[Rfam]
RNA sequence: GGGGGCGACCUGGUUUCGACAGGGGUUGUGAAGCGGCUAGGGCAUGUCGAGGACCCGUCACCUCGUUAAUCAAUGGGAAAAUCGUAACUGCAAACGACGAUACGUUCGCACUGGCAGCCUAAGGGCCGCCGUCCUCUGCCUAGUUCACUGACGGGCUAGUGUCGCAAGACCGGUAGCAAUACCGACAGAGGUCAUUUACGUCAGUUAAGCCCUGUCGGCGUCGCGACGCCAGGGUCGAAAAUCUAGCGAAUCGCCGUAGUGCAGCGUGUUCGUCCGCGUCGCUGCGGUUAAAUCAAAAGACUGGACUAAACAUGUAGAACUAGUCGUGGAGCGCUUCUGGACGCGGGUUCGAUUCCCGCCGCCUCCACCA
Numbered sequence: 001g002g003g004g005g006c007g008a009c010c011u012g013g014u015u016u017c018g019a020c021a022g023g024g025g026u027u028g029u030g031a032a033g034c035g036g037c038u039a040g041g042g043c044a045u046g047u048c049g050a051g052g053a054c055c056c057g058u059c060a061c062c063u064c065g066u067u068a069a070u071c072a073a074u075g076g077g078a079a080a081a082u083c084g085u086a087a088c089u090g091c092a093a094a095c096g097a098c099g100a101u102a103c104g105u106u107c108g109c110a111c112u113g114g115c116a117g118c119c120u121a122a123g124g125g126c127c128g129c130c131g132u133c134c135u136c137u138g139c140c141u142a143g144u145u146c147a148c149u150g151a152c153g154g155g156c157u158a159g160u161g162u163c164g165c166a167a168g169a170c171c172g173g174u175a176g177c178a179a180u181a182c183c184g185a186c187a188g189a190g191g192u193c194a195u196u197u198a199c200g201u202c203a204g205u206u207a208a209g210c211c212c213u214g215u216c217g218g219c220g221u222c223g224c225g226a227c228g229c230c231a232g233g234g235u236c237g238a239a240a241a242u243c244u245a246g247c248g249a250a251u252c253g254c255c256g257u258a259g260u261g262c263a264g265c266g267u268g269u270u271c272g273u274c275c276g277c278g279u280c281g282c283u284g285c286g287g288u289u290a291a292a293u294c295a296a297a298a299g300a301c302u303g304g305a306c307u308a309a310a311c312a313u314g315u316a317g318a319a320c321u322a323g324u325c326g327u328g329g330a331g332c333g334c335u336u337c338u339g340g341a342c343g344c345g346g347g348u349u350c351g352a353u354u355c356c357c358g359c360c361g362c363c364u365c366c367a368c369c370a
Stems, first nucleotide, its partner, number of pairs: 001366007020339007029330001033327008043314005048065005054077005112131004117126003133191006141158004147205007209235006216228002221249003254287008264277003268306004272301003343359005
RNA: transfer-messenger RNA